The record is a 228-nucleotide RNA from Medicago truncatula, which matches "MIR2655 microRNA precursor family" in Rfam. Lineage of the source: Eukaryota > Streptophytina > Mesangiospermae > Papilionoideae > Medicago. Gene Ontology terms of the family: miRNA-mediated post-transcriptional gene silencing and RISC complex.

[Rfam]
RNA sequence: CCCUUAACUAUUAAACGUUUCGUUUUGGUCCUUUAACUUACUUUUUGGUUUCAUUUUGGUCCCUUAACUCUUCCUCCGUCAACCACUUUGGUCCUUUAUGUUAGGAUGAAUGUAUUAGAGUUAAGGGACCAAAAAAUAAGUUAAGGGACCAAAACGAAACUUUUAAUAGUUAAGGAACCAAAACGAAACCAAAAAAUAAGUUAAGGGACCAAAAGAGUAAUUAAGCCA
Numbered sequence: 001c002c003c004u005u006a007a008c009u010a011u012u013a014a015a016c017g018u019u020u021c022g023u024u025u026u027g028g029u030c031c032u033u034u035a036a037c038u039u040a041c042u043u044u045u046u047g048g049u050u051u052c053a054u055u056u057u058g059g060u061c062c063c064u065u066a067a068c069u070c071u072u073c074c075u076c077c078g079u080c081a082a083c084c085a086c087u088u089u090g091g092u093c094c095u096u097u098a099u100g101u102u103a104g105g106a107u108g109a110a111u112g113u114a115u116u117a118g119a120g121u122u123a124a125g126g127g128a129c130c131a132a133a134a135a136a137u138a139a140g141u142u143a144a145g146g147g148a149c150c151a152a153a154a155c156g157a158a159a160c161u162u163u164u165a166a167u168a169g170u171u172a173a174g175g176a177a178c179c180a181a182a183a184c185g186a187a188a189c190c191a192a193a194a195a196a197u198a199a200g201u202u203a204a205g206g207g208a209c210c211a212a213a214a215g216a217g218u219a220a221u222u223a224a225g226c227c228a
Stems, first nucleotide, its partner, number of pairs: 003225005023214003027210003031206010042195002045192005